[Rfam]
A member of the RNA family "Eukaryotic large subunit ribosomal RNA" from Achlya hypogyna, 596 nucleotides of a longer RNA. Gene Ontology terms of the family: ribosome and structural constituent of ribosome. Taxonomically the source falls in Achlya (Eukaryota, Stramenopiles, Oomycota, Achlyaceae). A search with the family's covariance model found it, with a score of 3214 bits.
RNA sequence: AAAGAAGACCCUGUUGAGCUUGACUCUAGUCUGACGUUGUGAAAUGACUUAGGAGGUGUAGAAUAAGUGGGAGCUUCGGCGCAAGUGAAAUACCACUACUUCUAAUGUUGUUUUACUUAUCCCAUUAUGUAGCGCCUAGCCAUCCUCGCGGGUGCCUAGUUCUAGAUCGAAGCUUGGGAUUUAUCUCGGGUGAGCUACGUGGAAGACAUCGUCAGGUGGGGAGUUUGGCUGGGGCGGCACAUCUGUUAAAUGAUAACACAGGUGUCCUAAGGUGAGCUCAAUGAGAACAGAAAUCUCAUGUAGAACAAAAGGGUAAAAGCUCACUUGAUUUUGAUUUUCAGUAUGAAUACAAACCGUGAAAGCGUGGCCUCUCGAUCCUUUAGUUCUUUUGAAUUUUAAGCUAGAGGUGUCAGAAAAGUUACCACAGGGAUAACUGGCUUGUGGCAGCCAAGCGUUCAUAGCGACGUUGCUUUUUGAUUCUUCGAUGUCGGCUCUUCCUAUCAUUGCGAAGUAGAAUUCGCCAAUUGUUGGAUUGUUCACCCACUAAUAGGGAACGUGAGCUGGGUUUAGACCGUCGUGAGACAGGUUAGUUUUAC
Numbered sequence: 001a002a003a004g005a006a007g008a009c010c011c012u013g014u015u016g017a018g019c020u021u022g023a024c025u026c027u028a029g030u031c032u033g034a035c036g037u038u039g040u041g042a043a044a045u046g047a048c049u050u051a052g053g054a055g056g057u058g059u060a061g062a063a064u065a066a067g068u069g070g071g072a073g074c075u076u077c078g079g080c081g082c083a084a085g086u087g088a089a090a091u092a093c094c095a096c097u098a099c100u101u102c103u104a105a106u107g108u109u110g111u112u113u114u115a116c117u118u119a120u121c122c123c124a125u126u127a128u129g130u131a132g133c134g135c136c137u138a139g140c141c142a143u144c145c146u147c148g149c150g151g152g153u154g155c156c157u158a159g160u161u162c163u164a165g166a167u168c169g170a171a172g173c174u175u176g177g178g179a180u181u182u183a184u185c186u187c188g189g190g191u192g193a194g195c196u197a198c199g200u201g202g203a204a205g206a207c208a209u210c211g212u213c214a215g216g217u218g219g220g221g222a223g224u225u226u227g228g229c230u231g232g233g234g235c236g237g238c239a240c241a242u243c244u245g246u247u248a249a250a251u252g253a254u255a256a257c258a259c260a261g262g263u264g265u266c267c268u269a270a271g272g273u274g275a276g277c278u279c280a281a282u283g284a285g286a287a288c289a290g291a292a293a294u295c296u297c298a299u300g301u302a303g304a305a306c307a308a309a310a311g312g313g314u315a316a317a318a319g320c321u322c323a324c325u326u327g328a329u330u331u332u333g334a335u336u337u338u339c340a341g342u343a344u345g346a347a348u349a350c351a352a353a354c355c356g357u358g359a360a361a362g363c364g365u366g367g368c369c370u371c372u373c374g375a376u377c378c379u380u381u382a383g384u385u386c387u388u389u390u391g392a393a394u395u396u397u398a399a400g401c402u403a404g405a406g407g408u409g410u411c412a413g414a415a416a417a418g419u420u421a422c423c424a425c426a427g428g429g430a431u432a433a434c435u436g437g438c439u440u441g442u443g444g445c446a447g448c449c450a451a452g453c454g455u456u457c458a459u460a461g462c463g464a465c466g467u468u469g470c471u472u473u474u475u476g477a478u479u480c481u482u483c484g485a486u487g488u489c490g491g492c493u494c495u496u497c498c499u500a501u502c503a504u505u506g507c508g509a510a511g512u513a514g515a516a517u518u519c520g521c522c523a524a525u526u527g528u529u530g531g532a533u534u535g536u537u538c539a540c541c542c543a544c545u546a547a548u549a550g551g552g553a554a555c556g557u558g559a560g561c562u563g564g565g566u567u568u569a570g571a572c573c574g575u576c577g578u579g580a581g582a583c584a585g586g587u588u589a590g591u592u593u594u595a596c
Base pairs, nucleotide, nucleotide: 002594003593010428011427012426013425015424016423017420018419019418020417021416023224024223025222026221030216031215032214033213034212035211036210039116040115041114042113043112044111045110046109047108048107049105050104051103052102053101054100055099066097067096068095069094070093073080074079120204122202123201124200130197131196132195133194138157139156141154142153143152144151145150172191173190174189175188176187177186178185227240228238229237230236241263242262243261244260245259246258266367267366272324273323274322275321276320277319278304279303281299282298283297284296285295286294305314306313329353330352331351334348335347336346337345355364356363357362378406379405380404381403382402383401386400387399388398437478439476441475443471444470445469446468447467448466452462453461489564490562491561492560493559494556495553496552497551498550499549502527503526506521507520508519509518510517529543530542531541533539570588571587572586573585574583575582576581